[Rfam]
RNA sequence: CAUUGACGUGAUGAUAUCUUUGACGGAAUUUAAAAUGUCGACUCAAAAUAUCAGACUACAAUUAUCUGAUCACUG
Numbered sequence: 001c002a003u004u005g006a007c008g009u010g011a012u013g014a015u016a017u018c019u020u021u022g023a024c025g026g027a028a029u030u031u032a033a034a035a036u037g038u039c040g041a042c043u044c045a046a047a048a049u050a051u052c053a054g055a056c057u058a059c060a061a062u063u064a065u066c067u068g069a070u071c072a073c074u075g
Stems, first nucleotide, its partner, number of pairs: 001075002004072003